[Rfam]
RNA: Glycine riboswitch aptamer
Organism: Paraburkholderia acidisoli
RNA sequence: CUGCGCGCGCCGGGAGAGCGCGCCGCCAGGCAGCAGGUUUUCACCACCAGGCGGCGCCGCCGAAGGGGCAACCCACAAACUCUCAGGCAAAAGGACCGUGCGCGCCG
Numbered sequence: 001c002u003g004c005g006c007g008c009g010c011c012g013g014g015a016g017a018g019c020g021c022g023c024c025g026c027c028a029g030g031c032a033g034c035a036g037g038u039u040u041u042c043a044c045c046a047c048c049a050g051g052c053g054g055c056g057c058c059g060c061c062g063a064a065g066g067g068g069c070a071a072c073c074c075a076c077a078a079a080c081u082c083u084c085a086g087g088c089a090a091a092a093g094g095a096c097c098g099u100g101c102g103c104g105c106c107g
Stems, first nucleotide, its partner, number of pairs: 006104005011098003020057008059088003062084002066082003